[Rfam]
A member of the RNA family "SAM riboswitch aptamer (S box leader)" from Anaeromonas frigoriresistens, 101 nucleotides long. From the family's description: The SAM riboswitch is found upstream of a number of genes which code for proteins involved in methionine or cysteine biosynthesis in Gram-positive bacteria. The source organism's lineage runs through Bacteria, Bacillati, Tissierellia, Thermohalobacteraceae and Anaeromonas.
RNA sequence: CUCUUAUCCAGAGAGGUGGAGGGGCUGGCCCGAUGAAACCCGGCAACCUAUGCUAUAAGCAUAAGGUGCUAAUUCCUGCGGUAUAUACCGACAGAUGAGAG
Numbered sequence: 001c002u003c004u005u006a007u008c009c010a011g012a013g014a015g016g017u018g019g020a021g022g023g024g025c026u027g028g029c030c031c032g033a034u035g036a037a038a039c040c041c042g043g044c045a046a047c048c049u050a051u052g053c054u055a056u057a058a059g060c061a062u063a064a065g066g067u068g069c070u071a072a073u074u075c076c077u078g079c080g081g082u083a084u085a086u087a088c089c090g091a092c093a094g095a096u097g098a099g100a101g
Stems, first nucleotide, its partner, number of pairs: 001101008013041001015040003021031003025078001027076002042070004047066002049063004074093001079090004